Nucleotides: 053
Base pairs, nucleotide, nucleotide: 012050013026014025015024016023027036028035037049038048039047
Number, partner (000 for none) and nucleotide at each position: 001000a002000u003000a004000a005000u006000g007000a008000u009000a010000c011000u012050u013026c014025u015024g016023a017000u018000a019000u020000a021000g022000a023016u024015c025014a026013g027036u028035c029000c030000a031000u032000a033000g034000a035028g036027a037049u038048g039047g040000u041000g042000a043000g044000a045000u046000u047039c048038c049037a050012a051000u052000g053000c